[Rfam]
RNA sequence: CUGCAAACCUCUAGCGUGCUUGGAUCUGGGCGACCCUGUGCAUUCCUACUGAGCUUGUGAGAACAUUUUGGAACGAUUUGAGGCCUUGCCCUGCUGCAUCCGGAGCAAGGUUAUAGACAUUUCAGACAAUU
Numbered sequence: 001c002u003g004c005a006a007a008c009c010u011c012u013a014g015c016g017u018g019c020u021u022g023g024a025u026c027u028g029g030g031c032g033a034c035c036c037u038g039u040g041c042a043u044u045c046c047u048a049c050u051g052a053g054c055u056u057g058u059g060a061g062a063a064c065a066u067u068u069u070g071g072a073a074c075g076a077u078u079u080g081a082g083g084c085c086u087u088g089c090c091c092u093g094c095u096g097c098a099u100c101c102g103g104a105g106c107a108a109g110g111u112u113a114u115a116g117a118c119a120u121u122u123c124a125g126a127c128a129a130u131u
Stems, first nucleotide, its partner, number of pairs: 003058004008053001017042003022036002025033002069124005084110006091103003

Description: Small nucleolar RNA SNORA9: a 131-nucleotide RNA from Pipistrellus kuhlii. ACA9 is a member of the H/ACA class of snoRNA that guide the sites of modification of uridines to pseudouridines. Rfam links the family to the GO terms RNA processing and nucleolus. The family's RNA type in Rfam is H/ACA-box small nucleolar RNA. It scores 115 bits against the family's covariance model.